[Rfam]
Group II catalytic intron D1-D4-3: a 171-nucleotide RNA.
RNA sequence: UUCAUCGCGAGGUGAAAUCUGAAGGAAGCCGAAGGCAAAAUGCUGGCCUGACGAACAGGAAGCGGUUUAGGCGUUGUUGCAGGGUGAGGUGGCGAUUAUCACUAAAGCCCAAUACUUGCACGGAAUGCAGCAACGUAAAGCCGACAGGCAUAAGCAGGAAGGUCGCGCGAC
Dot-bracket structure: ((((((....))))))...........(.((...((....((((.(((((............((((....(((.(((((((((((..((((........))))...))))...............))))))).)))...)))).)))))...)))).....))....)).)
Rfam links the family to the GO term Group II intron splicing. The literature on the family includes a 2001 paper in Trends Genet by Bonen and Vogel, "The ins and outs of group II introns". It is one of the family's seed sequences.